A member of the RNA family "c-di-GMP-I riboswitch aptamer" from Luminiphilus syltensis, 86 nucleotides long.
Pairs were carried over by alignment from the consensus structure, which is taken from published work.
Gene Ontology term of the family: cyclic-di-GMP binding.
It scores 66 bits against the family's covariance model.

[Rfam]
RNA sequence: CAUGCACAAGGGCAAACCCAUCGAAAGGUGGGGACGCAAAGUUUCCGGCCUACCGAGCAAGCCUCCAAGGUCGCGGGAUUGCAACG
Numbered sequence: 001c002a003u004g005c006a007c008a009a010g011g012g013c014a015a016a017c018c019c020a021u022c023g024a025a026a027g028g029u030g031g032g033g034a035c036g037c038a039a040a041g042u043u044u045c046c047g048g049c050c051u052a053c054c055g056a057g058c059a060a061g062c063c064u065c066c067a068a069g070g071u072c073g074c075g076g077g078a079u080u081g082c083a084a085c086g
Stems, first nucleotide, its partner, number of pairs: 012037002017032006040080004045076003048071003055065003